[Rfam]
RNA sequence: GUUGAAGCUCCAUCUACAAAUGGAUAAGAUUCCUUCUUAGUGUAUACGAGCUUAGUGUAUACGAGUUCUUGAAAAGAAAGUAAAGGAGCAAUAUUAACCCUCUUGAUAAAACAAGAAAAAACUUGUUGCUCCUUUA
Numbered sequence: 001g002u003u004g005a006a007g008c009u010c011c012a013u014c015u016a017c018a019a020a021u022g023g024a025u026a027a028g029a030u031u032c033c034u035u036c037u038u039a040g041u042g043u044a045u046a047c048g049a050g051c052u053u054a055g056u057g058u059a060u061a062c063g064a065g066u067u068c069u070u071g072a073a074a075a076g077a078a079a080g081u082a083a084a085g086g087a088g089c090a091a092u093a094u095u096a097a098c099c100c101u102c103u104u105g106a107u108a109a110a111a112c113a114a115g116a117a118a119a120a121a122c123u124u125g126u127u128g129c130u131c132c133u134u135u136a
Stems, first nucleotide, its partner, number of pairs: 009024005082135012101116004